[Rfam]
RNA: Small nucleolar RNA SNORA58
Organism: Echinops telfairi
RNA sequence: GGGCAGACUCGUAGACCUUGCUUAACAGUGCUCAUAGCCAGGCGAGGGGGACAGUUGUGUGCAAGAGUGCUGUGAAUUUAAGCCAGCUCUAGCCACUGAUUAAACAUCAGUGGUUGGAUAAAUUGUAGUACUCUAACAUUC
Numbered sequence: 001g002g003g004c005a006g007a008c009u010c011g012u013a014g015a016c017c018u019u020g021c022u023u024a025a026c027a028g029u030g031c032u033c034a035u036a037g038c039c040a041g042g043c044g045a046g047g048g049g050g051a052c053a054g055u056u057g058u059g060u061g062c063a064a065g066a067g068u069g070c071u072g073u074g075a076a077u078u079u080a081a082g083c084c085a086g087c088u089c090u091a092g093c094c095a096c097u098g099a100u101u102a103a104a105c106a107u108c109a110g111u112g113g114u115u116g117g118a119u120a121a122a123u124u125g126u127a128g129u130a131c132u133c134u135a136a137c138a139u140u141c
Base pairs, nucleotide, nucleotide: 003062004061005060007058008057016047017046018045019044020043021042022041023040074134076132079130082126083125093117094116095115097113